[Rfam]
RNA sequence: ACCGGUCCUCGGUAGUGGCGUCCGGGCAACAAGACAGCCCGUGCGCUUCGAUCGAAGACCGGC
Numbered sequence: 001a002c003c004g005g006u007c008c009u010c011g012g013u014a015g016u017g018g019c020g021u022c023c024g025g026g027c028a029a030c031a032a033g034a035c036a037g038c039c040c041g042u043g044c045g046c047u048u049c050g051a052u053c054g055a056a057g058a059c060c061g062g063c
Stems, first nucleotide, its partner, number of pairs: 002062006009055005017047005023041005
Annotation: This 63-nucleotide RNA sequence from Phytomonospora endophytica belongs to the Rfam family "Actino-pnp RNA". The source organism's lineage runs through Bacteria, Bacillati, Actinomycetota, Micromonosporaceae and Phytomonospora. The family's RNA type in Rfam is cis-regulatory element.